mir-290 microRNA precursor family: a 75-nucleotide RNA from Cercocebus atys. Rfam links the family to the GO terms RISC complex and miRNA-mediated post-transcriptional gene silencing. For this family Rfam cites "Embryonic stem cell-specific MicroRNAs" (Houbaviy et al., Dev Cell, 2003). NCBI's taxonomy places the organism under Eukaryota, Dipnotetrapodomorpha, Euarchontoglires, Cercopithecoidea, Cercocebus. Its Rfam clan is "mir-290 clan".
[Rfam]
Nucleotides: 075
Base pairs, nucleotide, nucleotide: 004072005071006070007069008068009067010066011065012064015061016060017059018058020056021055022054023053024052025051026049027048028047
Number, partner (000 for none) and nucleotide at each position: 001000g002000u003000g004072g005071c006070a007069c008068u009067c010066a011065a012064a013000c014000u015061g016060u017059g018058g019000g020056g021055g022054c023053a024052c025051u026049u027048u028047u029000u030000g031000c032000u033000c034000u035000c036000u037000g038000g039000u040000a041000a042000a043000a044000a045000a046000a047028a048027a049026a050000a051025a052024g053023u054022g055021c056020c057000g058018c059017c060016a061015u062000g063000u064012u065011u066010u067009g068008a069007g070006u071005g072004u073000u074000a075000c